[Rfam]
Shown here is a 115-nucleotide RNA from Mytilus coruscus, a member of the family "Vault RNA".
RNA sequence: GUGUUGGCAUAGUCGAGUGGUUACUUCGCUUUGAAUUGGUAUCAAACUUCAACAGUCACUUGAAACUUAACGGGUUCGAAUCCCGUAGAAACCACUGACGCAGUCCAGCAUUUUU
Numbered sequence: 001g002u003g004u005u006g007g008c009a010u011a012g013u014c015g016a017g018u019g020g021u022u023a024c025u026u027c028g029c030u031u032u033g034a035a036u037u038g039g040u041a042u043c044a045a046a047c048u049u050c051a052a053c054a055g056u057c058a059c060u061u062g063a064a065a066c067u068u069a070a071c072g073g074g075u076u077c078g079a080a081u082c083c084c085g086u087a088g089a090a091a092c093c094a095c096u097g098a099c100g101c102a103g104u105c106c107a108g109c110a111u112u113u114u115u
Stems, first nucleotide, its partner, number of pairs: 002110006012099004017095004025080004
The match comes from Rfam's covariance-model search (54 bits). It is annotated as a non-coding RNA gene.